RNA sequence: AAGCGAGGACGGCCUCCCCCAGCUCUGGGAAAACGCGUCCGGGACGGCCCGG
Numbered sequence: 001a002a003g004c005g006a007g008g009a010c011g012g013c014c015u016c017c018c019c020c021a022g023c024u025c026u027g028g029g030a031a032a033a034c035g036c037g038u039c040c041g042g043g044a045c046g047g048c049c050c051g052g
Stems, first nucleotide, its partner, number of pairs: 003018001005016004039052005
RNA: Guanidine-II riboswitch aptamer (mini-ykkC)